This 85-nucleotide sequence from Anaerospora hongkongensis belongs to the Rfam family "c-di-GMP-I riboswitch aptamer".
[Rfam]
RNA sequence: UAAAUAUAUAGGCAAACUUGUCGAAAGGCAAGGACGCAAAGCUAUGGGUCUAAGGACAGUUGUCUAUGAUUGCCAGGUUGCCGAU
Numbered sequence: 001u002a003a004a005u006a007u008a009u010a011g012g013c014a015a016a017c018u019u020g021u022c023g024a025a026a027g028g029c030a031a032g033g034a035c036g037c038a039a040a041g042c043u044a045u046g047g048g049u050c051u052a053a054g055g056a057c058a059g060u061u062g063u064c065u066a067u068g069a070u071u072g073c074c075a076g077g078u079u080g081c082c083g084a085u
Stems, first nucleotide, its partner, number of pairs: 012037002017032006040079004045075003048070003055064003

It scores 85 bits against the family's covariance model. The family's consensus secondary structure is taken from published work.